[Rfam]
RNA: c-di-GMP-I riboswitch aptamer
Organism: Bacillus sp. MUM 116
RNA sequence: AAUAGAUAAAGGCAAACCCUUUGAAAGAUUGGGACGCAAAGCUACAGGUCUAAGGUUUUAUACUAUGAUGGCUGAGUUACCUAA
Numbered sequence: 001a002a003u004a005g006a007u008a009a010a011g012g013c014a015a016a017c018c019c020u021u022u023g024a025a026a027g028a029u030u031g032g033g034a035c036g037c038a039a040a041g042c043u044a045c046a047g048g049u050c051u052a053a054g055g056u057u058u059u060a061u062a063c064u065a066u067g068a069u070g071g072c073u074g075a076g077u078u079a080c081c082u083a084a
Stems, first nucleotide, its partner, number of pairs: 012037002017032002021028002040078004045074003048069003055063002